Shown here is a 184-nucleotide RNA sequence from Acrocarpospora pleiomorpha, a member of the family "c-di-AMP riboswitch aptamer (ydaO/yuaA leader)". Taxonomically the source falls in Acrocarpospora (Bacteria, Bacillati, Actinomycetota, Streptosporangiaceae). Rfam's curators write: This family represents a conserved RNA structure found upstream of the ydaO and yuaA genes in Bacillus subtilis and related genes in other bacteria. A search with the family's covariance model found it, with a score of 70 bits.
RNA sequence: ACGGCCCGACCGUCGAGUCCGCUCACGCGGAGCCGGGGAACCAUCGAGGGCCGGGAUCACUCUCCCGACACGAAAGCACCAAAUCCCAGCCCUCUCGGGGUGAAUCGGCCUGCACCCGCAGGCCGUAGGGCGACUUCCACGCCCGAAUCCGUCAGCUAACCCGGUAGGCGGCAUGGAAGCAAGG
Numbered sequence: 001a002c003g004g005c006c007c008g009a010c011c012g013u014c015g016a017g018u019c020c021g022c023u024c025a026c027g028c029g030g031a032g033c034c035g036g037g038g039a040a041c042c043a044u045c046g047a048g049g050g051c052c053g054g055g056a057u058c059a060c061u062c063u064c065c066c067g068a069c070a071c072g073a074a075a076g077c078a079c080c081a082a083a084u085c086c087c088a089g090c091c092c093u094c095u096c097g098g099g100g101u102g103a104a105u106c107g108g109c110c111u112g113c114a115c116c117c118g119c120a121g122g123c124c125g126u127a128g129g130g131c132g133a134c135u136u137c138c139a140c141g142c143c144c145g146a147a148u149c150c151g152u153c154a155g156c157u158a159a160c161c162c163g164g165u166a167g168g169c170g171g172c173a174u175g176g177a178a179g180c181a182a183g184g
Base pairs, nucleotide, nucleotide: 011170012169013168014167018031019030020029032165033164034163035162036161037160042097098150099149100148106125107124108123109122110121111120128144129143130142131141